[Rfam]
RNA sequence: AAAGCGUAAACCGAAAAGCUUAUUAAUAAUAGAGUAGGUA
Numbered sequence: 001a002a003a004g005c006g007u008a009a010a011c012c013g014a015a016a017a018g019c020u021u022a023u024u025a026a027u028a029a030u031a032g033a034g035u036a037g038g039u040a
Base pairs, nucleotide, nucleotide: 002021003020004019005018010039011038012037
Dot-bracket structure: .((((....[[[.....))))...............]]].